Notes: This 90-nucleotide sequence belongs to the Rfam family "PhotoRC-II RNA". By type it is a cis-regulatory element.

[Rfam]
RNA sequence: UGCUCAUCGUAUCAUCCCCCUAACCAAGACCAUGGGGUUAUAAUGUCUUCUUAUCCACUAGUGAAGGGAUUAGUGGAAAUACCGUAUCGC
Numbered sequence: 001u002g003c004u005c006a007u008c009g010u011a012u013c014a015u016c017c018c019c020c021u022a023a024c025c026a027a028g029a030c031c032a033u034g035g036g037g038u039u040a041u042a043a044u045g046u047c048u049u050c051u052u053a054u055c056c057a058c059u060a061g062u063g064a065a066g067g068g069a070u071u072a073g074u075g076g077a078a079a080u081a082c083c084g085u086a087u088c089g090c
Stems, first nucleotide, its partner, number of pairs: 016037004021032001027048004055076007